The record is a 141-nucleotide RNA from Streptococcus infantis, which matches "MarS sRNA" in Rfam.
About the family: Interacts with the 5'UTR of the mga transcript (the multiple virulence gene regulator gene) and was renamed MarS for mag-activating regulatory sRNA. In MarS deletion strains expression of mga and several Mga-activated genes is reduced.
RNA sequence: CUGCGAUGAGUCGAUAUGUAGCGAGAGCUACAAUUGCGCAAAGGAGGUCAUAACGCAGGAGCGGACCUUGAGAAAUUGUGUGAACCAGUUUCUCACAUGGAGAUGCCUCUCACACUCUCUGGUUUUUCCAGAGAGUUUUUU
Numbered sequence: 001c002u003g004c005g006a007u008g009a010g011u012c013g014a015u016a017u018g019u020a021g022c023g024a025g026a027g028c029u030a031c032a033a034u035u036g037c038g039c040a041a042a043g044g045a046g047g048u049c050a051u052a053a054c055g056c057a058g059g060a061g062c063g064g065a066c067c068u069u070g071a072g073a074a075a076u077u078g079u080g081u082g083a084a085c086c087a088g089u090u091u092c093u094c095a096c097a098u099g100g101a102g103a104u105g106c107c108u109c110u111c112a113c114a115c116u117c118u119c120u121g122g123u124u125u126u127u128c129c130a131g132a133g134a135g136u137u138u139u140u141u
Stems, first nucleotide, its partner, number of pairs: 012036004018031005042108003045068004054063003069095008096105003114136009
Record summary
A reference for the family is Pappesch et al. (2017), "The Regulatory Small RNA MarS Supports Virulence of Streptococcus pyogenes", Sci Rep. Its family is annotated with mRNA 5'-UTR binding and positive regulation of translation, ncRNA-mediated in the Gene Ontology.